[Rfam]
The record is a 113-nucleotide RNA from Halalkalibacterium halodurans, which matches "SAM riboswitch aptamer (S box leader)" in Rfam. Taxonomically the source falls in Halalkalibacterium halodurans (Bacteria, Bacillota, Bacilli, Bacillaceae). It is one of the family's seed sequences.

RNA sequence: CUCUUAUCCAGAGUUGGUGGAGGGACAGGCCCGAAGAAACCCCAGCAACCAACACCUGUUAAACAAAGGUGAAAAGGUGCUAACCUGCAAGGCGUUGCCUUGAAAGAUAAGAG
Numbered sequence: 001c002u003c004u005u006a007u008c009c010a011g012a013g014u015u016g017g018u019g020g021a022g023g024g025a026c027a028g029g030c031c032c033g034a035a036g037a038a039a040c041c042c043c044a045g046c047a048a049c050c051a052a053c054a055c056c057u058g059u060u061a062a063a064c065a066a067a068g069g070u071g072a073a074a075a076g077g078u079g080c081u082a083a084c085c086u087g088c089a090a091g092g093c094g095u096u097g098c099c100u101u102g103a104a105a106g107a108u109a110a111g112a113g
Base pairs, nucleotide, nucleotide: 001113002112003111004110005109006108007107008106013043016041017040018039022032023031024030026087027086028085029084044081045080046079047078049077050076053071054070055069056068057067088102089101090100091099092098